This 222-nucleotide sequence from [Clostridium] innocuum belongs to the Rfam family "Group II catalytic intron D1-D4-6".
For this family Rfam cites "Control of branch-site choice by a group II intron" (Chu et al., EMBO J, 2001).
Taxonomically the source falls in [Clostridium] innocuum (Bacteria, Bacillota, Clostridia, Clostridium).
About the family: Group II introns are found in rRNA, tRNA and mRNA of organelles in fungi, plants and protists, and also in mRNA in bacteria.
The pairing is the family consensus, mapped onto this sequence.

RNA sequence: GAAAUCCUGUCUGUUUAAGGUCUAACCAACCAGCAGUAGCGAGUCUUGCGUGGUAAUCAGUAAUGAUUAUUGCGAAGCGUAGACAGCGAGCAAGUAGGGUUGCAAUGCGAUUGAGCCUCGAAAUGUUGAAAUUCAGAGGGCUGACACGUUAAUUCUUGUGGAAAGCAAUAUCACAUAGGUCGAUAAGGUAAGAAUUGUGUGGCACUGCGGGGUCAAAGAGCC
Numbered sequence: 001g002a003a004a005u006c007c008u009g010u011c012u013g014u015u016u017a018a019g020g021u022c023u024a025a026c027c028a029a030c031c032a033g034c035a036g037u038a039g040c041g042a043g044u045c046u047u048g049c050g051u052g053g054u055a056a057u058c059a060g061u062a063a064u065g066a067u068u069a070u071u072g073c074g075a076a077g078c079g080u081a082g083a084c085a086g087c088g089a090g091c092a093a094g095u096a097g098g099g100u101u102g103c104a105a106u107g108c109g110a111u112u113g114a115g116c117c118u119c120g121a122a123a124u125g126u127u128g129a130a131a132u133u134c135a136g137a138g139g140g141c142u143g144a145c146a147c148g149u150u151a152a153u154u155c156u157u158g159u160g161g162a163a164a165g166c167a168a169u170a171u172c173a174c175a176u177a178g179g180u181c182g183a184u185a186a187g188g189u190a191a192g193a194a195u196u197g198u199g200u201g202g203c204a205c206u207g208c209g210g211g212g213u214c215a216a217a218g219a220g221c222c
Stems, first nucleotide, its partner, number of pairs: 012035002016033001019031003023191001025189002037089001039087002043084004047079002049074011112216001113214001115213006134207003139203001140166003145160004171202008180193002